[Rfam]
RNA: ZMP/ZTP riboswitch aptamer (pfl RNA motif)
RNA sequence: UGGCCCGGUCGCGACUGGCGCCAAGGCGUGUGACACGCCGAGGGUGGGGAACCACCGGGGAGCGACAUCCGAACAGCAGACUAGUAGGUCGAACGCCUGGGCUGAAGGU
Number, nucleotide and partner (000 for none) at each position: 001u000002g000003g000004c000005c000006c000007g000008g066009u065010c064011g063012c062013g000014a000015c059016u058017g097018g096019c095020g094021c000022c000023a000024a000025g000026g000027c000028g000029u000030g000031u000032g000033a000034c000035a000036c000037g000038c000039c000040g000041a000042g000043g000044g055045u054046g053047g052048g000049g000050a000051a000052c047053c046054a045055c044056c000057g000058g016059g015060g000061a000062g012063c011064g010065a009066c008067a000068u000069c000070c000071g000072a000073a000074c000075a000076g000077c000078a000079g000080a000081c000082u000083a000084g000085u000086a000087g103088g102089u101090c100091g000092a000093a000094c020095g019096c018097c017098u000099g000100g090101g089102c088103u087104g000105a000106a000107g000108g000109u000